[Rfam]
RNA sequence: AUGGUAAAACCAGAAAGCCAUGUAGCAUAUACCCAAUGCUGAAAGCGAUUUCAGUGUUGAAGCGGUAUGUAAAAACUCCAAUACUGGGGGAGCAAGUUAACAGUCCGUAGCAUAA
Numbered sequence: 001a002u003g004g005u006a007a008a009a010c011c012a013g014a015a016a017g018c019c020a021u022g023u024a025g026c027a028u029a030u031a032c033c034c035a036a037u038g039c040u041g042a043a044a045g046c047g048a049u050u051u052c053a054g055u056g057u058u059g060a061a062g063c064g065g066u067a068u069g070u071a072a073a074a075a076c077u078c079c080a081a082u083a084c085u086g087g088g089g090g091a092g093c094a095a096g097u098u099a100a101c102a103g104u105c106c107g108u109a110g111c112a113u114a115a
Stems, first nucleotide, its partner, number of pairs: 001021004029068005034059006043050002076089005092108002

Description: A member of the RNA family "Group II catalytic intron D1-D4-4", 115 nucleotides long. Group II introns are found in rRNA, tRNA and mRNA of organelles in fungi, plants and protists, and also in mRNA in bacteria. The family has 90 seed sequences and 840 matches in Rfam 15.1. Pairs were carried over by alignment from the consensus structure. Its family is annotated with Group II intron splicing in the Gene Ontology.